[Rfam]
RNA sequence: UAUGGCCGGAGCAGGGGUUCGUUCAGAGAAUCUGCAACGUUUCCUUGAUGCCGGGGUGCAGGAAGUGCACAGCUCCGCAGGAGCGUGGCAAGCCUCACCAAUGCGUUAUCGCAAUCAUGGAUUGUCCAUGUCAACUGACGCACAAGCGGACGAGUAUUCGCGCUAUGCGGUAGACGGGGCGGCGGUUGCUGAAAUGAAAGGAGUCAUUGUGCGCCAUCAGGCCAAUUGAUUUUUACCGUUGCAUCAUGUCGCCCAAUAUGAUGCUUGCUCGUACCAGGCCCCUGCCAUUUCAACAGGGGCCUUUUUUU
Numbered sequence: 001u002a003u004g005g006c007c008g009g010a011g012c013a014g015g016g017g018u019u020c021g022u023u024c025a026g027a028g029a030a031u032c033u034g035c036a037a038c039g040u041u042u043c044c045u046u047g048a049u050g051c052c053g054g055g056g057u058g059c060a061g062g063a064a065g066u067g068c069a070c071a072g073c074u075c076c077g078c079a080g081g082a083g084c085g086u087g088g089c090a091a092g093c094c095u096c097a098c099c100a101a102u103g104c105g106u107u108a109u110c111g112c113a114a115u116c117a118u119g120g121a122u123u124g125u126c127c128a129u130g131u132c133a134a135c136u137g138a139c140g141c142a143c144a145a146g147c148g149g150a151c152g153a154g155u156a157u158u159c160g161c162g163c164u165a166u167g168c169g170g171u172a173g174a175c176g177g178g179g180c181g182g183c184g185g186u187u188g189c190u191g192a193a194a195u196g197a198a199a200g201g202a203g204u205c206a207u208u209g210u211g212c213g214c215c216a217u218c219a220g221g222c223c224a225a226u227u228g229a230u231u232u233u234u235a236c237c238g239u240u241g242c243a244u245c246a247u248g249u250c251g252c253c254c255a256a257u258a259u260g261a262u263g264c265u266u267g268c269u270c271g272u273a274c275c276a277g278g279c280c281c282c283u284g285c286c287a288u289u290u291c292a293a294c295a296g297g298g299g300c301c302u303u304u305u306u307u308u
Stems, first nucleotide, its partner, number of pairs: 003276003009270007016041003022036001024034003044083003049079003053076005061068001084130005089124003093120002101115002103112003132140001146161005166263002170259003177254008185245001187243003193240004199234008208225001213222003277301008
The family of this 308-nucleotide RNA from Citrobacter koseri is "MicL sRNA". About the family: mRNA-interfering complementary RNA regulator of Lpp. Transcription factor sigma E dependant sRNA. Together with MicA and RybB it allows sigma E to repress the synthesis of all abundant outer membrane proteins in response to stress. Rfam links the family to the GO term translation repressor activity. Taxonomically the source falls in Citrobacter koseri (Bacteria, Pseudomonadota, Enterobacterales, Citrobacter). Rfam classes the family as a small RNA.